RNA: Small nucleolar RNA SNORD125
RNA sequence: GGCUGGAACAGCCUCACGUGAUGACCCUUCUCUCUCUGAUGGCUAUGGUGGUGAUGAUCAUCAAACCAAAGCCUCUAAGAAGUUGACUGAAGAGGCUGUUCCUCU
Numbered sequence: 001g002g003c004u005g006g007a008a009c010a011g012c013c014u015c016a017c018g019u020g021a022u023g024a025c026c027c028u029u030c031u032c033u034c035u036c037u038g039a040u041g042g043c044u045a046u047g048g049u050g051g052u053g054a055u056g057a058u059c060a061u062c063a064a065a066c067c068a069a070a071g072c073c074u075c076u077a078a079g080a081a082g083u084u085g086a087c088u089g090a091a092g093a094g095g096c097u098g099u100u101c102c103u104c105u
Stems, first nucleotide, its partner, number of pairs: 007100009